[Rfam]
RNA: Potassium channel RNA editing signal
Organism: Trichinella spiralis
RNA sequence: UUCAGUUACGGUGACAUGGUGCCAGAGACGAUGAUCGGUAAAGUAGUUGGAGGUGUUUGCUCCCUCAGUGGUGUAUUAGUCAUAGCUCUACCAGUUCCGGUGAUAGUAUCGAAC
Numbered sequence: 001u002u003c004a005g006u007u008a009c010g011g012u013g014a015c016a017u018g019g020u021g022c023c024a025g026a027g028a029c030g031a032u033g034a035u036c037g038g039u040a041a042a043g044u045a046g047u048u049g050g051a052g053g054u055g056u057u058u059g060c061u062c063c064c065u066c067a068g069u070g071g072u073g074u075a076u077u078a079g080u081c082a083u084a085g086c087u088c089u090a091c092c093a094g095u096u097c098c099g100g101u102g103a104u105a106g107u108a109u110c111g112a113a114c
Stems, first nucleotide, its partner, number of pairs: 002113001005110001007108003011104001014101002018097002021095002037077004049063003